[Rfam]
RNA sequence: AUGAACCUUCGGGGCAGGGUGAGAUUCCCUACCGGCGGUGACGAUUGCCCGUGCAAUCCAGCCCGCGACUCGACGUAACCAUAAUUGUUGCGCCGAUUGACUUGGUGAAAUUCCAAGGCCGACGGUAUAGUCCGGAUGAGAGAAGGAACAA
Numbered sequence: 001a002u003g004a005a006c007c008u009u010c011g012g013g014g015c016a017g018g019g020u021g022a023g024a025u026u027c028c029c030u031a032c033c034g035g036c037g038g039u040g041a042c043g044a045u046u047g048c049c050c051g052u053g054c055a056a057u058c059c060a061g062c063c064c065g066c067g068a069c070u071c072g073a074c075g076u077a078a079c080c081a082u083a084a085u086u087g088u089u090g091c092g093c094c095g096a097u098u099g100a101c102u103u104g105g106u107g108a109a110a111u112u113c114c115a116a117g118g119c120c121g122a123c124g125g126u127a128u129a130g131u132c133c134g135g136a137u138g139a140g141a142g143a144a145g146g147a148a149c150a151a
Stems, first nucleotide, its partner, number of pairs: 003149001006146005017029003031131002033121002035066004061119002070096002101117005123134003
Rfam assigns this 151-nucleotide sequence from Desulfosporosinus metallidurans to the family "FMN riboswitch aptamer (RFN element)". The base pairs follow the family's consensus structure, which is taken from published work. Rfam links the family to the GO term FMN binding.